[Rfam]
RNA sequence: AGCUUUGCGCAGAGGCAGUAUCGUAACCAAUGAGGAUUCGUCCGAGGUGCGAUUAUUGCUAGUUGAAAACUUUAACCAAUACCCCGCCAUGACGACGUGAAAUACCGUCGGCUACGGCAAUUUGUGUAAGCCCAUUCGUGGG
Numbered sequence: 001a002g003c004u005u006u007g008c009g010c011a012g013a014g015g016c017a018g019u020a021u022c023g024u025a026a027c028c029a030a031u032g033a034g035g036a037u038u039c040g041u042c043c044g045a046g047g048u049g050c051g052a053u054u055a056u057u058g059c060u061a062g063u064u065g066a067a068a069a070c071u072u073u074a075a076c077c078a079a080u081a082c083c084c085c086g087c088c089a090u091g092a093c094g095a096c097g098u099g100a101a102a103u104a105c106c107g108u109c110g111g112c113u114a115c116g117g118c119a120a121u122u123u124g125u126g127u128a129a130g131c132c133c134a135u136u137c138g139u140g141g142g
Stems, first nucleotide, its partner, number of pairs: 020053005026048003034043003086118003091112001093110005131142004
The record is a 142-nucleotide RNA sequence from Hyalella azteca, which matches "U4 spliceosomal RNA" in Rfam. From the family's description: U4 small nuclear RNA (U4 snRNA) is a component of the major U2-dependent spliceosome. By type it is a spliceosomal small nuclear RNA. The family's consensus secondary structure is taken from published work. Gene Ontology terms of the family: spliceosomal tri-snRNP complex assembly and U4 snRNP.